Nucleotides: 073
Stems, first nucleotide, its partner, number of pairs: 001072007010025004027043001029041003049065005
Number, partner (000 for none) and nucleotide at each position: 001072g002071g003070g004069u005068g006067a007066u008000u009000a010025g011024c012023u013022c014000a015000g016000u017000u018000g019000g020000u021000a022013g023012a024011g025010c026000a027043u028000c029041u030040c031039c032000u033000u034000u035000a036000c037000a038000c039031g040030g041029a042000u043027g044000g045000g046000g047000u048000c049065g050064g051063c052062g053061g054000u055000u056000a057000g058000a059000g060000c061053c062052c063051g064050u065049c066007a067006u068005c069004g070003c071002c072001c073000a
This 73-nucleotide RNA sequence from Erwinia tracheiphila belongs to the Rfam family "tRNA". Rfam 15.1 lists 5,335,975 matches to the family in 14,413 species. By type it is a transfer RNA. Taxonomically the source falls in Erwinia (Bacteria, Pseudomonadota, Gammaproteobacteria, Erwiniaceae).